A member of the RNA family "Enterococcus sRNA B11" from Enterococcus faecalis, 177 nucleotides long.
RNA sequence: GGCAGCUCGCCUCGAUUGGAGGUGUGUUAUUUGUGAAAGAUUUAAUGUCGUUGGUUAUCGCACCAAUCUUUGUAGGAUUGGUUCUGGAAAUGAUUUCUCGUGUGUUGGACGAGGAAGACGAUAGCCGAAAGUAAGCUGCUAUCAACACACACGCUAGAAGUCGCAACUAGUGUAAAA
Numbered sequence: 001g002g003c004a005g006c007u008c009g010c011c012u013c014g015a016u017u018g019g020a021g022g023u024g025u026g027u028u029a030u031u032u033g034u035g036a037a038a039g040a041u042u043u044a045a046u047g048u049c050g051u052u053g054g055u056u057a058u059c060g061c062a063c064c065a066a067u068c069u070u071u072g073u074a075g076g077a078u079u080g081g082u083u084c085u086g087g088a089a090a091u092g093a094u095u096u097c098u099c100g101u102g103u104g105u106u107g108g109a110c111g112a113g114g115a116a117g118a119c120g121a122u123a124g125c126c127g128a129a130a131g132u133a134a135g136c137u138g139c140u141a142u143c144a145a146c147a148c149a150c151a152c153g154c155u156a157g158a159a160g161u162c163g164c165a166a167c168u169a170g171u172g173u174a175a176a177a
Base pairs, nucleotide, nucleotide: 001140002139003138004137005136006135007134010022011021012020013019023038025036052127053126054125055124056123057122058121059120060119062082063081064080065079066078067077068076069075084100086098087097088096089095101111102110152172153171154170155169156168
The family's RNA type in Rfam is small RNA.